[Rfam]
RNA: c-di-AMP riboswitch aptamer (ydaO/yuaA leader)
Organism: Anoxybacter fermentans
RNA sequence: AACAAAGGUACGCUGAAUUCCAGGUAUUGGAAGCGGGGGACCCACUUUUUUUGGGGUGAAUCCUUAAAUUUGAUAUUUAAGGAGGGGCUGCUCUUGGGCCCUAACCCGACAGCUAACCCCGUAAGCGUAAAACAAGAGGUUAC
Number, nucleotide and partner (000 for none) at each position: 001a000002a000003c000004a000005a000006a000007g000008g000009u000010a000011c127012g126013c125014u124015g000016a000017a000018u032019u031020c030021c029022a028023g000024g000025u000026a000027u000028u022029g021030g020031a019032a018033g122034c121035g120036g119037g118038g117039g000040a000041c000042c000043c053044a052045c000046u000047u000048u000049u000050u000051u000052u044053g043054g107055g106056g105057u000058g000059a000060a000061u000062c082063c081064u080065u079066a078067a077068a076069u075070u000071u000072g000073a000074u000075a069076u068077u067078u066079a065080a064081g063082g062083a000084g000085g101086g100087g099088c098089u000090g000091c000092u000093c000094u000095u000096g000097g000098g088099c087100c086101c085102u000103a000104a000105c056106c055107c054108g000109a000110c000111a000112g000113c000114u000115a000116a000117c038118c037119c036120c035121g034122u033123a000124a014125g013126c012127g011128u000129a000130a000131a000132a000133c000134a000135a000136g000137a000138g000139g000140u000141u000142a000143c000